[Rfam]
Rfam assigns this 129-nucleotide RNA sequence from Hemiprocne comata to the family "Small nucleolar RNA SNORA15". Rfam's curators write: ACA15 is a member of the H/ACA class of snoRNA that guide the sites of modification of uridines to pseudouridines. The family's RNA type in Rfam is H/ACA-box small nucleolar RNA. Gene Ontology terms of the family: RNA processing and nucleolus. The organism belongs to Hemiprocne, within Eukaryota.

RNA sequence: GCAUGGAUGAAUUCUGCACUAGCUUUCCUCAGUAGCUGAUGCAGUCAGACACUAUGCCAGAGCAAACUCCCAUGCCACACUCUGGUGUGCUUCCUUCAGUGAGCAUGUCCUGGGAAGUGGGGCACAGAA
Numbered sequence: 001g002c003a004u005g006g007a008u009g010a011a012u013u014c015u016g017c018a019c020u021a022g023c024u025u026u027c028c029u030c031a032g033u034a035g036c037u038g039a040u041g042c043a044g045u046c047a048g049a050c051a052c053u054a055u056g057c058c059a060g061a062g063c064a065a066a067c068u069c070c071c072a073u074g075c076c077a078c079a080c081u082c083u084g085g086u087g088u089g090c091u092u093c094c095u096u097c098a099g100u101g102a103g104c105a106u107g108u109c110c111u112g113g114g115a116a117g118u119g120g121g122g123c124a125c126a127g128a129a
Base pairs, nucleotide, nucleotide: 001057002056003055004054005053006052014044015043016042017041018040070120071119072118073117076114080113081112084109085108086107087106088105089104090103091102092101